[Rfam]
RNA sequence: CCUUGUGGUAGCUUCUGGAUUUGGCAGAUCUGUAACUGUAUCAGAGCAGCCUUGAACUACCACAGAGAUCAGAAAGGAGGGAGAACUGUGCUGAGAACUUCUUCAGACUCCUAGUUUUCAGCUUUUUGCUCACCUCCCACAGAA
Number, nucleotide and partner (000 for none) at each position: 001c000002c000003u000004u000005g063006u062007g061008g060009u059010a058011g057012c000013u000014u000015c000016u000017g000018g000019a000020u000021u000022u000023g051024g050025c049026a000027g047028a000029u045030c044031u043032g042033u000034a000035a000036c000037u000038g000039u000040a000041u000042c032043a031044g030045a029046g000047c027048a000049g025050c024051c023052u000053u000054g000055a000056a000057c011058u010059a009060c008061c007062a006063c005064a000065g000066a000067g000068a000069u000070c000071a000072g000073a000074a000075a000076g137077g136078a135079g134080g133081g000082a000083g000084a000085a000086c000087u000088g000089u000090g000091c000092u000093g000094a000095g000096a000097a000098c000099u000100u000101c000102u000103u000104c128105a127106g126107a125108c000109u000110c000111c000112u000113a000114g000115u000116u000117u000118u000119c000120a000121g000122c000123u000124u000125u107126u106127u105128g104129c000130u000131c000132a000133c080134c079135u078136c077137c076138c000139a000140c000141a000142g000143a000144a000
Rfam assigns this 144-nucleotide RNA sequence from Aythya fuligula to the family "Small nucleolar RNA SNORA12". It is annotated as an H/ACA-box small nucleolar RNA. U108 belongs to the H/ACA family of snoRNAs. The sequence is predicted to guide the pseudouridylation of the U372 residue in the 28S rRNA subunit. However it has not been reported as a pseudouridylation site.